[Rfam]
RNA sequence: GCCAGGGGUCGGGUCUUUGCGGGCAAGGUGACGAGUUAAACCGUCUCUCAACUGGCCUACAAAGUCCCAGUUUCUGGU
Numbered sequence: 001g002c003c004a005g006g007g008g009u010c011g012g013g014u015c016u017u018u019g020c021g022g023g024c025a026a027g028g029u030g031a032c033g034a035g036u037u038a039a040a041c042c043g044u045c046u047c048u049c050a051a052c053u054g055g056c057c058u059a060c061a062a063a064g065u066c067c068c069a070g071u072u073u074c075u076g077g078u
Stems, first nucleotide, its partner, number of pairs: 003076006011068003015064005021058004026053002029050002
RNA: mir-193 microRNA precursor family
Organism: Denticeps clupeoides